[Rfam]
RNA: FMN riboswitch aptamer (RFN element)
RNA sequence: UACGUGCUCCGGGGUCGGUGAAAGUCCGAACCGGCGGUGAUAGUCCGCGAGCCGUGGAUGGGUGCAAGCCUGGAAGCGGUUGACCUGGUGGAACUCCGGGACCGACGGUAAUGGGUUGGCGACAAUCCUCAGUCCGGAUGAGAGGAAGCACGAG
Numbered sequence: 001u002a003c004g005u006g007c008u009c010c011g012g013g014g015u016c017g018g019u020g021a022a023a024g025u026c027c028g029a030a031c032c033g034g035c036g037g038u039g040a041u042a043g044u045c046c047g048c049g050a051g052c053c054g055u056g057g058a059u060g061g062g063u064g065c066a067a068g069c070c071u072g073g074a075a076g077c078g079g080u081u082g083a084c085c086u087g088g089u090g091g092a093a094c095u096c097c098g099g100g101a102c103c104g105a106c107g108g109u110a111a112u113g114g115g116u117u118g119g120c121g122a123c124a125a126u127c128c129u130c131a132g133u134c135c136g137g138a139u140g141a142g143a144g145g146a147a148g149c150a151c152g153a154g
Stems, first nucleotide, its partner, number of pairs: 003152006009145002016028003032104002034048004043102002051080005084100005106136003